[Rfam]
Nucleotides: 092
Stems, first nucleotide, its partner, number of pairs: 002091010013080005019074020
Number, partner (000 for none) and nucleotide at each position: 001000g002091u003090a004089a005088a006087a007086u008085u009084a010083g011082c012000c013080a014079c015078u016077u017076g018000u019074u020073a021072u022071u023070u024069u025068u026067u027066a028065a029064u030063u031062g032061g033060u034059u035058c036057u037056u038055a039000c040000u041000g042000u043000g044000u045000u046000a047000a048000a049000a050000u051000u052000u053000u054000a055038u056037a057036a058035g059034a060033a061032c062031c063030a064029a065028u066027u067026g068025a069024a070023a071022a072021a073020u074019a075000u076017c077016a078015a079014g080013u081000a082011g083010c084009u085008a086007g087006u088005u089004u090003u091002g092000g